[Rfam]
RNA sequence: CCAGUCGGCCGGACGGCCGCCGCUCCGACGAUUCAAAAUCGGCGGAGCGGAGGAAAGUCCGGGCUCCAGUGAGACACGGUGCCGGAUAACGUCCGGCGGGGGCGACCCCAGGGAUAGCGCCACAGAAAGCAAACCGCCGGUCGCGAGACCGGUAAGGGUGAAAGGGUGCGGUAAGAGCGCACCGCGGGCCUGGCAACAGGGACGGCACGGCAAGCCCCACCGGGAGCAAGACCGAAUAGGGGCGACACGAAGCGCAAGCUUCAGGUCCGUCUGACGACCGUCGCCCGGGUUGGUUGCUCGAGGCGGCCGGCAACGGCCGUCCCAGAGGAAUGGCCGUCACGUCCGAGGCCGCAAGGCGUCGGGCCGUACAGAACCCGGCUUAUAGGCCGACUGGCACC
Numbered sequence: 001c002c003a004g005u006c007g008g009c010c011g012g013a014c015g016g017c018c019g020c021c022g023c024u025c026c027g028a029c030g031a032u033u034c035a036a037a038a039u040c041g042g043c044g045g046a047g048c049g050g051a052g053g054a055a056a057g058u059c060c061g062g063g064c065u066c067c068a069g070u071g072a073g074a075c076a077c078g079g080u081g082c083c084g085g086a087u088a089a090c091g092u093c094c095g096g097c098g099g100g101g102g103c104g105a106c107c108c109c110a111g112g113g114a115u116a117g118c119g120c121c122a123c124a125g126a127a128a129g130c131a132a133a134c135c136g137c138c139g140g141u142c143g144c145g146a147g148a149c150c151g152g153u154a155a156g157g158g159u160g161a162a163a164g165g166g167u168g169c170g171g172u173a174a175g176a177g178c179g180c181a182c183c184g185c186g187g188g189c190c191u192g193g194c195a196a197c198a199g200g201g202a203c204g205g206c207a208c209g210g211c212a213a214g215c216c217c218c219a220c221c222g223g224g225a226g227c228a229a230g231a232c233c234g235a236a237u238a239g240g241g242g243c244g245a246c247a248c249g250a251a252g253c254g255c256a257a258g259c260u261u262c263a264g265g266u267c268c269g270u271c272u273g274a275c276g277a278c279c280g281u282c283g284c285c286c287g288g289g290u291u292g293g294u295u296g297c298u299c300g301a302g303g304c305g306g307c308c309g310g311c312a313a314c315g316g317c318c319g320u321c322c323c324a325g326a327g328g329a330a331u332g333g334c335c336g337u338c339a340c341g342u343c344c345g346a347g348g349c350c351g352c353a354a355g356g357c358g359u360c361g362g363g364c365c366g367u368a369c370a371g372a373a374c375c376c377g378g379c380u381u382a383u384a385g386g387c388c389g390a391c392u393g394g395c396a397c398c
Base pairs, nucleotide, nucleotide: 001394002393003392004391005390006389007388008387009386010385011383012338013337014336015335016334017333018332020050021049022048023047024046025045026044027043055381056380057379059378060377061376062375063374064226065225066224067223073272077222078221079220080219081218082096083095084094085093086092097111098109099108100107101106112217113216117215118214119211120210121209134157135156136153137152138151139150140149141148142147165183166182167181168180169179170178184206185204186203189200190199191198192197230295231294232293233292240286241285242284243283244282245281264279265278266277267276302321303320304319305318306317307316308315309314
Dot-bracket structure: ((((((((((((((((((.((((((((...............))))))))....[[[.[[[[[((((.....[...((((((((((.....)))))(((((....)))).)((...(((((............(((((((((....)))))))..)).......((((((.......))))))(((..((((....))))..)).)..)))..)))))))))))))...((((......((((((..................((((....]...)))).)))))).....))))......((((((((....))))))))..........)))))))...................................]]]]]]]].).))))))))))....